[Rfam]
This 154-nucleotide sequence belongs to the Rfam family "IS605-orfB-II RNA".
RNA sequence: CAUGAUUAGCUAUCUAUAGCUAGGAUUGUAUAGAGGGUAGUCGCAGUCACCCCAACUCCGAUUUGUGGAUUUAAUCUUAGAUUUUGUGCAUGAAUAAGGCGAGAAACAACAAUUAUGUUGGAAACUUUAAUUUUAUUAAAAAUUAAGGAACUGU
Numbered sequence: 001c002a003u004g005a006u007u008a009g010c011u012a013u014c015u016a017u018a019g020c021u022a023g024g025a026u027u028g029u030a031u032a033g034a035g036g037g038u039a040g041u042c043g044c045a046g047u048c049a050c051c052c053c054a055a056c057u058c059c060g061a062u063u064u065g066u067g068g069a070u071u072u073a074a075u076c077u078u079a080g081a082u083u084u085u086g087u088g089c090a091u092g093a094a095u096a097a098g099g100c101g102a103g104a105a106a107c108a109a110c111a112a113u114u115a116u117g118u119u120g121g122a123a124a125c126u127u128u129a130a131u132u133u134u135a136u137u138a139a140a141a142a143u144u145a146a147g148g149a150a151c152u153g154u
Stems, first nucleotide, its partner, number of pairs: 006023007035052004043154004056103003061095007069087002073083004107120005125148009
The sequence is in the family's curated seed alignment. The family's RNA type in Rfam is small RNA. Pairs were carried over by alignment from the consensus structure, which is taken from published work.